[Rfam]
RNA sequence: GCACCCGUAGCUCAGUUGGAUAGAGCAUCGGAUUUCUAAUCCGACGGUCAGUGGUUCGAGUCCACUCGGGUGCG
Dot-bracket structure: (((((((..((((.........)))).(((((.......))))).....(((((.......)))))))))))).
tRNA: a 74-nucleotide RNA sequence from a Phycisphaerae bacterium. Taxonomically the source falls in Phycisphaerae (Bacteria, Pseudomonadati, Planctomycetota). Transfer RNA (tRNA) molecules are approximately 80 nucleotides in length.